This 135-nucleotide RNA sequence belongs to the Rfam family "Alphaproteobacterial sRNA ar35". For this family Rfam cites "A survey of sRNA families in alpha-proteobacteria" (del Val et al., RNA Biol, 2012).

RNA sequence: AGUCGGGCAAAAUGUCGGCCUGCAAUCUCCAGGCUGCUUAAAUCGGUAUCUGCUUUCCUUUGACCACGGAUGUACUGGCACUGUUGAAAGCAAAACCCUUGAUGAAGGCCGGGCAUUGCCUGGCCUUUUUCAUGU
Numbered sequence: 001a002g003u004c005g006g007g008c009a010a011a012a013u014g015u016c017g018g019c020c021u022g023c024a025a026u027c028u029c030c031a032g033g034c035u036g037c038u039u040a041a042a043u044c045g046g047u048a049u050c051u052g053c054u055u056u057c058c059u060u061u062g063a064c065c066a067c068g069g070a071u072g073u074a075c076u077g078g079c080a081c082u083g084u085u086g087a088a089a090g091c092a093a094a095a096c097c098c099u100u101g102a103u104g105a106a107g108g109c110c111g112g113g114c115a116u117u118g119c120c121u122g123g124c125c126u127u128u129u130u131c132a133u134g135u
Stems, first nucleotide, its partner, number of pairs: 003046004009039001016036005049094001051092005058083001061080002064078003098134001100132003104128008113119002
The pairing is the family consensus, mapped onto this sequence. It is annotated as a small RNA.